Shown here is a 76-nucleotide RNA from Eubacteriaceae bacterium Marseille-Q4139, a member of the family "caiA RNA". It is annotated as a small RNA. The source organism's lineage runs through Bacteria, Bacillati, Bacillota, Clostridia and Eubacteriaceae.
RNA sequence: GAUACAUAGGGGAGAUGCCGCAUCCACGUUUCCCCAUGUCAUAUAUGAACCAAUUACAAGGAGGAACUAACACAUG
Numbered sequence: 001g002a003u004a005c006a007u008a009g010g011g012g013a014g015a016u017g018c019c020g021c022a023u024c025c026a027c028g029u030u031u032c033c034c035c036a037u038g039u040c041a042u043a044u045a046u047g048a049a050c051c052a053a054u055u056a057c058a059a060g061g062a063g064g065a066a067c068u069a070a071c072a073c074a075u076g
Base pairs, nucleotide, nucleotide: 004039005038006037007036009035010034011033012032013031014030015029016028017027